[Rfam]
Nucleotides: 102
Stems, first nucleotide, its partner, number of pairs: 018088008029049007058078004063073002
Number, partner (000 for none) and nucleotide at each position: 001000u002000c003000g004000a005000a006000u007000a008000u009000u010000a011000u012000a013000g014000u015000a016000u017000u018088u019087a020086u021085u022084c023083g024082u025081a026000u027000a028000u029049g030048c031047u032046c033045a034044a035043a036000a037000a038000u039000a040000u041000g042000g043035u044034u045033u046032g047031a048030g049029u050000g051000u052000u053000u054000c055000u056000a057000c058078c059077a060076g061075g062000a063073g064072g065000c066000c067000g068000u069000a070000a071000a072064c073063u074000a075061c076060c077059u078058g079000a080000c081025u082024a083023c084022g085021a086020a087019u088018a089000u090000a091000u092000a093000a094000u095000u096000u097000a098000a099000c100000c101000a102000a
The record is a 102-nucleotide sequence from Clostridium sp. USBA 49, which matches "Purine riboswitch aptamer" in Rfam. Taxonomically the source falls in Clostridium (Bacteria, Bacillati, Clostridia, Clostridiaceae). Gene Ontology term of the family: purine nucleobase biosynthetic process. Rfam's curators write: Riboswitches are metabolite binding domains within certain messenger RNAs that serve as precision sensors for their corresponding targets. Allosteric rearrangement of mRNA structure is mediated by ligand binding, and this results in modulation of gene expression. A class of riboswitches that selectively recognises guanine and becomes saturated at concentrations as low as 5 nM. In Bacillus subtilis, this mRNA motif is located on at least five separate transcriptional units that together encode 17 genes that are mostly involved in purine transport and purine nucleotide biosynthesis. It has also been shown that some members of this family are specific for adenine instead. The family's consensus secondary structure is taken from published work.